RNA sequence: CCGGCUCCGGUUCACGCCGUUCACUCCGAACGGCGACCCGGCGGCC
Numbered sequence: 001c002c003g004g005c006u007c008c009g010g011u012u013c014a015c016g017c018c019g020u021u022c023a024c025u026c027c028g029a030a031c032g033g034c035g036a037c038c039c040g041g042c043g044g045c046c
Stems, first nucleotide, its partner, number of pairs: 003046003007041004015035008
Source information
The record is a 46-nucleotide RNA sequence from Frankia sp. QA3, which matches "L31-Actinobacteria ribosomal protein leader" in Rfam. Taxonomically the source falls in Frankia (Bacteria, Bacillati, Actinomycetes, Frankiaceae). For this family Rfam cites "Discovery of 20 novel ribosomal leader candidates in bacteria and archaea" (Eckert and Weinberg, BMC Microbiol, 2020). The sequence is in the family's curated seed alignment.